[Rfam]
RNA: Small nucleolar RNA SNORA8
RNA sequence: UGCACUGUAUGGUAUCUGCACCCAGCAGCAUUCUUCUGAUGGGAUGUUCAAAAAACAGUGCUACAGGAGUUCAGCAUUUGGCAUCGUUGGUUUUCAUUCUGUUGUGUCUGUUAAACCUGGUAUUUUUGCUGAUACAGUC
Dot-bracket structure: .((((((.......(.((((.(((.(((.......))).).)).)))....).).))))))..(((((((((((.....(((((...................)))))........)))).)))))))...........
Numbered sequence: 001u002g003c004a005c006u007g008u009a010u011g012g013u014a015u016c017u018g019c020a021c022c023c024a025g026c027a028g029c030a031u032u033c034u035u036c037u038g039a040u041g042g043g044a045u046g047u048u049c050a051a052a053a054a055a056c057a058g059u060g061c062u063a064c065a066g067g068a069g070u071u072c073a074g075c076a077u078u079u080g081g082c083a084u085c086g087u088u089g090g091u092u093u094u095c096a097u098u099c100u101g102u103u104g105u106g107u108c109u110g111u112u113a114a115a116c117c118u119g120g121u122a123u124u125u126u127u128g129c130u131g132a133u134a135c136a137g138u139c
Stems, first nucleotide, its partner, number of pairs: 002061006015054001017052001018047003022043002024040001026038003064128007071120004080108005